M-box riboswitch aptamer (ykoK leader): a 178-nucleotide RNA from Paenibacillus selenitireducens. For this family Rfam cites "New RNA motifs suggest an expanded scope for riboswitches in bacterial genetic control" (Barrick et al., Proc Natl Acad Sci U S A, 2004). Its family is annotated with response to magnesium ion and regulation of gene expression in the Gene Ontology. A search with the family's covariance model found it, with a score of 151 bits.
RNA sequence: AUAUGUCCUCGUUAGGUGAGGCUCCUAUGCAAACAUAGGCCACUGCCCAGAAAUAUCGAAAGAUACCAAUGGGUAGACCAGGAAUUGUCGGAUUAAGGCUUUUCAUAAGGUGGCUAAGAGAAUGAACUUUUCACUCUUUACGUUGCAUAGUGCUAAAACUGGACUAGGGGGAAUCGUU
Numbered sequence: 001a002u003a004u005g006u007c008c009u010c011g012u013u014a015g016g017u018g019a020g021g022c023u024c025c026u027a028u029g030c031a032a033a034c035a036u037a038g039g040c041c042a043c044u045g046c047c048c049a050g051a052a053a054u055a056u057c058g059a060a061a062g063a064u065a066c067c068a069a070u071g072g073g074u075a076g077a078c079c080a081g082g083a084a085u086u087g088u089c090g091g092a093u094u095a096a097g098g099c100u101u102u103u104c105a106u107a108a109g110g111u112g113g114c115u116a117a118g119a120g121a122a123u124g125a126a127c128u129u130u131u132c133a134c135u136c137u138u139u140a141c142g143u144u145g146c147a148u149a150g151u152g153c154u155a156a157a158a159c160u161g162g163a164c165u166a167g168g169g170g171g172a173a174u175c176g177u178u
Stems, first nucleotide, its partner, number of pairs: 005174002008171003011164002013096001015160003020154003025150008039114005045074005054065004082104003087099003116138005